[Rfam]
TPP riboswitch aptamer (THI element): a 119-nucleotide RNA sequence from Paenarthrobacter aurescens. A search with the family's covariance model found it, with a score of 60 bits. Lineage of the source: Bacteria > Actinomycetes > Micrococcales > Micrococcaceae > Paenarthrobacter. Rfam 15.1 lists 16,130 matches to the family in 8,693 species. Rfam links the family to the GO term thiamine pyrophosphate binding.
RNA sequence: GGCACGUACUGCGGGAGCCGCGACGAUCGUCAUAUGACCGUCCGGCUGAGAGGGCUUCAGAGCCGACCGCUUGACCUGAUCCGGCUAGUACCGGCGUAGGGAAGGAAACGAAUGGCAGA
Numbered sequence: 001g002g003c004a005c006g007u008a009c010u011g012c013g014g015g016a017g018c019c020g021c022g023a024c025g026a027u028c029g030u031c032a033u034a035u036g037a038c039c040g041u042c043c044g045g046c047u048g049a050g051a052g053g054g055c056u057u058c059a060g061a062g063c064c065g066a067c068c069g070c071u072u073g074a075c076c077u078g079a080u081c082c083g084g085c086u087a088g089u090a091c092c093g094g095c096g097u098a099g100g101g102a103a104g105g106a107a108a109c110g111a112a113u114g115g116c117a118g119a
Base pairs, nucleotide, nucleotide: 007106009104010103011070012069013068014067017046018045019044020043053064054063055062056061075100076099077098078097081094082093083092084091